[Rfam]
RNA sequence: UGCUGGUGGUGAAGUUCCCACUCUCUGAGCACUGGGCUCUGCCGGGGGUGAGCG
Numbered sequence: 001u002g003c004u005g006g007u008g009g010u011g012a013a014g015u016u017c018c019c020a021c022u023c024u025c026u027g028a029g030c031a032c033u034g035g036g037c038u039c040u041g042c043c044g045g046g047g048g049u050g051a052g053c054g
Stems, first nucleotide, its partner, number of pairs: 001054004
Rfam assigns this 54-nucleotide RNA sequence from Otolemur garnettii to the family "Z6 small nucleolar RNA". A search with the family's covariance model found it, with a score of 48 bits. The family's consensus secondary structure was predicted with PFOLD. The source organism's lineage runs through Eukaryota, Euteleostomi, Dipnotetrapodomorpha, Eutheria and Otolemur. The family has 7 seed sequences and 212 matches in Rfam 15.1.